[Rfam]
RNA sequence: CAGACGUGAAACUGGAUGUCUCUCGCGGUCAUACAGUAUACAGAGAUCUAUGACUAGAGACACAUUCAGCUUGGCGGCUGG
Numbered sequence: 001c002a003g004a005c006g007u008g009a010a011a012c013u014g015g016a017u018g019u020c021u022c023u024c025g026c027g028g029u030c031a032u033a034c035a036g037u038a039u040a041c042a043g044a045g046a047u048c049u050a051u052g053a054c055u056a057g058a059g060a061c062a063c064a065u066u067c068a069g070c071u072u073g074g075c076g077g078c079u080g081g
Base pairs, nucleotide, nucleotide: 005076006075007074009072012069013068014067015066016065017064018063019062023059027055028054029053030052031051032050033049
RNA: mir-44 microRNA precursor family
Organism: Parascaris univalens